[Rfam]
RNA sequence: GGGGGCGAUUUGGAUUCGACGCUGGUAACAAAGUCCAAGGUGCAUGUCGUGAGGGUAGCCAAUCACGUUAAUCCAAAGCUGCAAACCUUACAGUUGCCAAUGAUGACAACUACGGUGCCCAAUUAGCUGCGUAAGCAGCUUUUGAAAGCACUAACUAGUGGUUCGCCGCUAGCGGUCUCUAACAAGGUGCCAGUACCGCGUUAAAGCCCGUCAUAUAGAACUGGAUCGCAGUGAAGCCUGCCUGGGGUGGAUCAGCUAAACCUUAUCAGGAUCGCGUUUUACGUCCCGCCCGCUGGGCUGUAAAUCGCUAAAUCAAUAGGCGGAUCUAAACAUGUAGAGCUGCGGAUAGAGUGCUGACGGACGGGGGUUCAACUCCCCCCGCCUCCACCA
Numbered sequence: 001g002g003g004g005g006c007g008a009u010u011u012g013g014a015u016u017c018g019a020c021g022c023u024g025g026u027a028a029c030a031a032a033g034u035c036c037a038a039g040g041u042g043c044a045u046g047u048c049g050u051g052a053g054g055g056u057a058g059c060c061a062a063u064c065a066c067g068u069u070a071a072u073c074c075a076a077a078g079c080u081g082c083a084a085a086c087c088u089u090a091c092a093g094u095u096g097c098c099a100a101u102g103a104u105g106a107c108a109a110c111u112a113c114g115g116u117g118c119c120c121a122a123u124u125a126g127c128u129g130c131g132u133a134a135g136c137a138g139c140u141u142u143u144g145a146a147a148g149c150a151c152u153a154a155c156u157a158g159u160g161g162u163u164c165g166c167c168g169c170u171a172g173c174g175g176u177c178u179c180u181a182a183c184a185a186g187g188u189g190c191c192a193g194u195a196c197c198g199c200g201u202u203a204a205a206g207c208c209c210g211u212c213a214u215a216u217a218g219a220a221c222u223g224g225a226u227c228g229c230a231g232u233g234a235a236g237c238c239u240g241c242c243u244g245g246g247g248u249g250g251a252u253c254a255g256c257u258a259a260a261c262c263u264u265a266u267c268a269g270g271a272u273c274g275c276g277u278u279u280u281a282c283g284u285c286c287c288g289c290c291c292g293c294u295g296g297g298c299u300g301u302a303a304a305u306c307g308c309u310a311a312a313u314c315a316a317u318a319g320g321c322g323g324a325u326c327u328a329a330a331c332a333u334g335u336a337g338a339g340c341u342g343c344g345g346a347u348a349g350a351g352u353g354c355u356g357a358c359g360g361a362c363g364g365g366g367g368u369u370c371a372a373c374u375c376c377c378c379c380c381g382c383c384u385c386c387a388c389c390a
Stems, first nucleotide, its partner, number of pairs: 001386007020359002023356005033347004039341003043334005048067005055082005122143001125140006173210003177206002180203004186197003190224005228256002231253001241270004274308003278304006284297003288326001291323001292321003363379005
A member of the RNA family "transfer-messenger RNA" from Cellvibrio polysaccharolyticus, 390 nucleotides long. It is annotated as a non-coding RNA gene. The family's consensus secondary structure is taken from published work. A reference for the family is Williams and Bartel (1996), "Phylogenetic analysis of tmRNA secondary structure", RNA. Bacterial tmRNA, also known as 10Sa RNA or SsrA, is named for its dual tRNA and mRNA-like properties. Its family is annotated with RNA catabolic process in the Gene Ontology. The family is grouped with related families in Rfam's "tRNA clan". Lineage of the source: Bacteria > Pseudomonadati > Pseudomonadota > Cellvibrionales > Cellvibrio.